[Rfam]
RNA sequence: CCCCUUUGCAAGACCCGGCAAGGGUUCUAUAUAGGGCCUGUCGGGUCGCACCCGACUAUGACGCUAAACCCUUCAUGGAAUAAGCGUAGCGGACCCGGGGGCAGUACCCGGCGGCUCCACCAACUUCUCGACGGGGCCGAAACAGGAUCGACGCGCGUGGUAAAGAUGAAGGUUGCGUCCGGCAUGGCUCCACCGUUAUCGGGCCAUACGCAAUAGUUGCCAACGACAACUUUGCUCCGGCUCGCGCCGCCGCGUAACGCGGUGUCGUGACCGAAAUUGAAGCCCUGGCGGUUAGCCCCGUCAGGCGGGGUCCGGGAGGCACCUGGCAACAGAAGCCUCCCACU
Numbered sequence: 001c002c003c004c005u006u007u008g009c010a011a012g013a014c015c016c017g018g019c020a021a022g023g024g025u026u027c028u029a030u031a032u033a034g035g036g037c038c039u040g041u042c043g044g045g046u047c048g049c050a051c052c053c054g055a056c057u058a059u060g061a062c063g064c065u066a067a068a069c070c071c072u073u074c075a076u077g078g079a080a081u082a083a084g085c086g087u088a089g090c091g092g093a094c095c096c097g098g099g100g101g102c103a104g105u106a107c108c109c110g111g112c113g114g115c116u117c118c119a120c121c122a123a124c125u126u127c128u129c130g131a132c133g134g135g136g137c138c139g140a141a142a143c144a145g146g147a148u149c150g151a152c153g154c155g156c157g158u159g160g161u162a163a164a165g166a167u168g169a170a171g172g173u174u175g176c177g178u179c180c181g182g183c184a185u186g187g188c189u190c191c192a193c194c195g196u197u198a199u200c201g202g203g204c205c206a207u208a209c210g211c212a213a214u215a216g217u218u219g220c221c222a223a224c225g226a227c228a229a230c231u232u233u234g235c236u237c238c239g240g241c242u243c244g245c246g247c248c249g250c251c252g253c254g255u256a257a258c259g260c261g262g263u264g265u266c267g268u269g270a271c272c273g274a275a276a277u278u279g280a281a282g283c284c285c286u287g288g289c290g291g292u293u294a295g296c297c298c299c300g301u302c303a304g305g306c307g308g309g310g311u312c313c314g315g316g317a318g319g320c321a322c323c324u325g326g327c328a329a330c331a332g333a334a335g336c337c338u339c340c341c342a343c344u
Stems, first nucleotide, its partner, number of pairs: 040056007060179005070172007085157003089154003095111005112139007180195003185206003189203003308324004315340006
This 344-nucleotide RNA sequence from Caenispirillum salinarum belongs to the Rfam family "Alphaproteobacteria transfer-messenger RNA".
NCBI's taxonomy places the organism under Bacteria, Rhodospirillales, Novispirillaceae, Caenispirillum, Caenispirillum salinarum.
About the family: Bacterial tmRNA, also known as 10Sa RNA or SsrA, is named for its dual tRNA and mRNA-like properties. Its role is to liberate the mRNA from a stalled ribosome. To accomplish this part of the tmRNA is used as a reading frame that ends in a translation stop signal. The broken mRNA is replaced in the ribosome by the tmRNA and translation of the tmRNA leads to addition of a proteolysis tag to the incomplete protein enabling recognition by a protease. Recently a number of permuted tmRNA genes have been found encoded in two parts. tmRNAs have been identified in eubacteria and some chloroplasts but are absent from archaeal and eukaryote nuclear genomes.
A search with the family's covariance model found it, with a score of 288 bits.
It is annotated as a non-coding RNA gene.